Rfam assigns this 113-nucleotide RNA sequence from Ophiophagus hannah to the family "Small nucleolar RNA SNORD67". On this family, see Huttenhofer et al., EMBO J 2001: "RNomics: an experimental approach that identifies 201 candidates for novel, small, non-messenger RNAs in mouse".
RNA sequence: UGCGAGAGUGAUGAGUUGCACAUUUGGUGGAGCUGAGUGUCAGGUGACACUUGCACCACUCUGAAAUAUGUCUUGAUGACAUAACUAAGUGCACAGGGGCCAUCUGACUCGCA
Numbered sequence: 001u002g003c004g005a006g007a008g009u010g011a012u013g014a015g016u017u018g019c020a021c022a023u024u025u026g027g028u029g030g031a032g033c034u035g036a037g038u039g040u041c042a043g044g045u046g047a048c049a050c051u052u053g054c055a056c057c058a059c060u061c062u063g064a065a066a067u068a069u070g071u072c073u074u075g076a077u078g079a080c081a082u083a084a085c086u087a088a089g090u091g092c093a094c095a096g097g098g099g100c101c102a103u104c105u106g107a108c109u110c111g112c113a
Base pairs, nucleotide, nucleotide: 004112006110007109008108023064024063026061027059028058029057030056032054033053037050038049039048040047041046
snoRNA HBII-166 belongs to the C/D family of snoRNAs.